[Rfam]
RNA sequence: GCGGCCGUGCCCGAGCGGUCGAAGGGGUCGGGCUUAGGACCCGAUGGGUUAGUCCCGUCCGGGGUUCGAAUCCCCGCGGCCGCA
Numbered sequence: 001g002c003g004g005c006c007g008u009g010c011c012c013g014a015g016c017g018g019u020c021g022a023a024g025g026g027g028u029c030g031g032g033c034u035u036a037g038g039a040c041c042c043g044a045u046g047g048g049u050u051a052g053u054c055c056c057g058u059c060c061g062g063g064g065u066u067c068g069a070a071u072c073c074c075c076g077c078g079g080c081c082g083c084a
Stems, first nucleotide, its partner, number of pairs: 001083007010026003028044005060076005

Background
Shown here is an 84-nucleotide sequence from Nanoarchaeum equitans, a member of the family "tRNA". The match comes from Rfam's covariance-model search (58 bits). It is annotated as a transfer RNA. Its family is annotated with triplet codon-amino acid adaptor activity in the Gene Ontology. The source organism's lineage runs through Archaea, Nanoarchaeales, Nanoarchaeaceae, Nanoarchaeum and Nanoarchaeum equitans.